[Rfam]
RNA sequence: AAUUGGCAAGUAUGAUGAUUCAAUUAGAUGCGUGAAUGGAAAUUAAUCCAUAUUGAACUCAACAUUUUGAGGCAUUUUAAUUGUCUGACUUGCGUGUU
Numbered sequence: 001a002a003u004u005g006g007c008a009a010g011u012a013u014g015a016u017g018a019u020u021c022a023a024u025u026a027g028a029u030g031c032g033u034g035a036a037u038g039g040a041a042a043u044u045a046a047u048c049c050a051u052a053u054u055g056a057a058c059u060c061a062a063c064a065u066u067u068u069g070a071g072g073c074a075u076u077u078u079a080a081u082u083g084u085c086u087g088a089c090u091u092g093c094g095u096g097u098u
Stems, first nucleotide, its partner, number of pairs: 001098003006093005
Shown here is a 98-nucleotide RNA from Populus tomentosa, a member of the family "Small nucleolar RNA Z266". On this family, see Chen et al., Nucleic Acids Res 2003: "The high diversity of snoRNAs in plants: identification and comparative study of 120 snoRNA genes from Oryza sativa". By type it is a C/D-box small nucleolar RNA. Taxonomically the source falls in Populus (Eukaryota, Viridiplantae, Streptophytina, Embryophyta). The family's consensus secondary structure was predicted with PFOLD.